[Rfam]
RNA sequence: UGAGCAAGCGAUGACAGCCGGUGGUGUGUGAGUCAUGGAGGAUGAAUACUAAGUGCCUGGAACUCUGAGGUUCAA
Numbered sequence: 001u002g003a004g005c006a007a008g009c010g011a012u013g014a015c016a017g018c019c020g021g022u023g024g025u026g027u028g029u030g031a032g033u034c035a036u037g038g039a040g041g042a043u044g045a046a047u048a049c050u051a052a053g054u055g056c057c058u059g060g061a062a063c064u065c066u067g068a069g070g071u072u073c074a075a
Stems, first nucleotide, its partner, number of pairs: 002073004

This 75-nucleotide RNA sequence belongs to the Rfam family "Small nucleolar RNA SNORD113/SNORD114 family". The family's consensus secondary structure is taken from published work. Rfam's curators put it in the seed alignment. It is annotated as a C/D-box small nucleolar RNA. Gene Ontology terms of the family: nucleolus and RNA processing. The family is grouped with related families in Rfam's "SNORD74 clan".